[Rfam]
This 117-nucleotide sequence from Orbus hercynius belongs to the Rfam family "Phenylalanine leader peptide". Rfam 15.1 lists 379 matches to the family in 290 species.
RNA sequence: GAUUAUAUGAAUGCAGUUUUUUUUCGUUUCUUUUUUAGCUUAAUGAAAUGAGUUCAUUUUGAGGCAGAAUGAAAACGAAAACGAAUUGUAAAGGCCUCAGUUAGAGGCUUUUUUUUU
Number, nucleotide and partner (000 for none) at each position: 001g000002a000003u000004u000005a000006u000007a000008u000009g000010a000011a000012u000013g000014c000015a000016g086017u085018u084019u083020u000021u081022u080023u079024u078025c077026g076027u075028u074029u073030c000031u071032u000033u069034u068035u000036u066037a000038g000039c052040u051041u050042a049043a000044u000045g000046a000047a000048a000049u042050g041051a040052g039053u063054u062055c061056a060057u000058u000059u000060u056061g055062a054063g053064g000065c000066a036067g000068a034069a033070u000071g031072a000073a029074a028075a027076c026077g025078a024079a023080a022081a021082c000083g019084a018085a017086u016087u000088g000089u000090a000091a111092a110093g109094g108095c107096c106097u105098c104099a000100g000101u000102u000103a000104g098105a097106g096107g095108c094109u093110u092111u091112u000113u000114u000115u000116u000117u000
It scores 60 bits against the family's covariance model.